[Rfam]
RNA: msiK RNA
RNA sequence: CACUGACACUCUUCACAACGGAUCGUCCGGCACGUACCUGCCGGUGAAGGGAACGGUUA
Number, nucleotide and partner (000 for none) at each position: 001c000002a000003c000004u000005g000006a000007c000008a000009c051010u050011c049012u048013u047014c046015a045016c000017a000018a000019c000020g000021g000022a000023u000024c000025g000026u000027c044028c043029g042030g041031c040032a039033c000034g000035u000036a000037c000038c000039u032040g031041c030042c029043g028044g027045u015046g014047a013048a012049g011050g010051g009052a000053a000054c000055g000056g000057u000058u000059a000